[Rfam]
A member of the RNA family "dinG RNA", 94 nucleotides long. Pairs were carried over by alignment from the consensus structure, which is taken from published work. Rfam's curators put it in the seed alignment. By type it is a small RNA.

Nucleotides: 094
Stems, first nucleotide, its partner, number of pairs: 011027005028053004033048001054094006062087001067082004
Number, partner (000 for none) and nucleotide at each position: 001000a002000a003000u004000g005000g006000u007000a008000c009000u010000u011027c012026u013025c014024c015023g016000a017000g018000a019000a020000a021000a022000c023015c024014g025013g026012a027011g028053c029052c030051g031050g032000a033048u034000a035000g036000c037000g038000c039000g040000g041000a042000g043000g044000c045000g046000u047000g048033a049000c050031c051030c052029g053028g054094u055093g056092a057091a058090g059089c060000g061000c062087g063000g064000c065000u066000u067082a068081g069080g070079c071000u072000g073000g074000g075000a076000u077000a078000c079070g080069c081068c082067u083000u084000u085000g086000g087062c088000g089059g090058c091057u092056u093055c094054a